[Rfam]
RNA sequence: CUGGAGACUAAGAAAACAGAGUCCUUGAAGUCAAGCUGACUCAGCUUUCAGCCUCCUACAUUAAAAGGUAGAUAGAACAGGUCUUGUUUGCGAAAUAAAUUCGAGACCUACUGAUCUACCAACAGCA
Number, nucleotide and partner (000 for none) at each position: 001c000002u000003g056004g055005a054006g053007a000008c051009u050010a000011a048012g000013a000014a000015a000016a000017c044018a000019g042020a041021g040022u039023c038024c035025u034026u033027g032028a000029a000030g000031u000032c027033a026034a025035g024036c000037u000038g023039a022040c021041u020042c019043a000044g017045c000046u000047u000048u011049c000050a009051g008052c000053c006054u005055c004056c003057u000058a000059c000060a000061u000062u000063a000064a000065a000066a000067g120068g119069u118070a117071g116072a115073u114074a000075g000076a000077a000078c000079a109080g108081g107082u106083c105084u104085u103086g102087u000088u000089u000090g000091c000092g000093a000094a000095a000096u000097a000098a000099a000100u000101u000102c086103g085104a084105g083106a082107c081108c080109u079110a000111c000112u000113g000114a073115u072116c071117u070118a069119c068120c067121a000122a000123c000124a000125g000126c000127a000
Shown here is a 127-nucleotide sequence from Myotis myotis, a member of the family "Small Cajal body specific RNA 15". A reference for the family is Darzacq et al. (2002), "Cajal body-specific small nuclear RNAs: a novel class of 2'-O-methylation and pseudouridylation guide RNAs", EMBO J. Rfam links the family to the GO terms RNA processing, Cajal body and nucleolus. Rfam describes the family as follows. scaRNAs are a specific class of small nuclear RNAs which localise to the Cajal bodies and guide the modification of RNA polymerase II transcribed spliceosomal RNAs U1, U2, U4, U5 and U12. The family's RNA type in Rfam is small Cajal body RNA.